[Rfam]
RNA: Small nucleolar RNA SNORD28
Organism: Cavia porcellus
RNA sequence: GUCAGAUGAUUUGAAUCUAUGACCUGAUGCACUGUGAAGUGGCGUUACAGCAUGUUAGAGUUCUGAUGGCA
Numbered sequence: 001g002u003c004a005g006a007u008g009a010u011u012u013g014a015a016u017c018u019a020u021g022a023c024c025u026g027a028u029g030c031a032c033u034g035u036g037a038a039g040u041g042g043c044g045u046u047a048c049a050g051c052a053u054g055u056u057a058g059a060g061u062u063c064u065g066a067u068g069g070c071a
Stems, first nucleotide, its partner, number of pairs: 001070004